RNA sequence: AAAAAAGCAGGGGCCUGUUGCCUAUGUGAACAGGCCUCUCGUAAACUUCAGGGAAAUCAGUUACAUUGUUAUUGGGUGAACCUCUGUUUUAUUUUAUGUGGCUGAAGGUUCAGUAAAUGAUGACACAUUU
Numbered sequence: 001a002a003a004a005a006a007g008c009a010g011g012g013g014c015c016u017g018u019u020g021c022c023u024a025u026g027u028g029a030a031c032a033g034g035c036c037u038c039u040c041g042u043a044a045a046c047u048u049c050a051g052g053g054a055a056a057u058c059a060g061u062u063a064c065a066u067u068g069u070u071a072u073u074g075g076g077u078g079a080a081c082c083u084c085u086g087u088u089u090u091a092u093u094u095u096a097u098g099u100g101g102c103u104g105a106a107g108g109u110u111c112a113g114u115a116a117a118u119g120a121u122g123a124c125a126c127a128u129u130u
Stems, first nucleotide, its partner, number of pairs: 005048003011037002014034004064122007077112007
RNA: Small nucleolar RNA snoR74